[Rfam]
RNA sequence: GUCAGGAACCUCAGCCCUGACGGCAUGAGGCUUGUAAGAUUCUUACGAGCCGUCCUGACCAGCCUAAGACUUCCCUUGGUCUACGUUUUUUGAGUCACGACACCCUGGGAUGCCUAGCUAGUCCCCUGAGAGUGUCAUUUGCAGUUAAACAGUUUUAAGGUCACUGAAACAGUGCUGCAAGUCUAAAAAGCUCAGAAAACAUUGACCGACAAGCUAACUUUAC
Numbered sequence: 001g002u003c004a005g006g007a008a009c010c011u012c013a014g015c016c017c018u019g020a021c022g023g024c025a026u027g028a029g030g031c032u033u034g035u036a037a038g039a040u041u042c043u044u045a046c047g048a049g050c051c052g053u054c055c056u057g058a059c060c061a062g063c064c065u066a067a068g069a070c071u072u073c074c075c076u077u078g079g080u081c082u083a084c085g086u087u088u089u090u091u092g093a094g095u096c097a098c099g100a101c102a103c104c105c106u107g108g109g110a111u112g113c114c115u116a117g118c119u120a121g122u123c124c125c126c127u128g129a130g131a132g133u134g135u136c137a138u139u140u141g142c143a144g145u146u147a148a149a150c151a152g153u154u155u156u157a158a159g160g161u162c163a164c165u166g167a168a169a170c171a172g173u174g175c176u177g178c179a180a181g182u183c184u185a186a187a188a189a190g191c192u193c194a195g196a197a198a199a200c201a202u203u204g205a206c207c208g209a210c211a212a213g214c215u216a217a218c219u220u221u222a223c
Base pairs, nucleotide, nucleotide: 001059002058003057004056005055006054007053010030011029012027013026016023017022031049032048033047034046035045036044037043038042062206064204066202067082068081069080070079071078085200086199087198088197089196090195091194092193093192094191095190100135101134104128107125108124109123110122111121112219115216116215117214118213119212137182138181139180140179141178142177143176144175145174149173150172152170153169154168155167156166157165159164

A member of the RNA family "HNH endonuclease-associated RNA and ORF (HEARO) RNA" from filamentous cyanobacterium Phorm 6, 223 nucleotides long.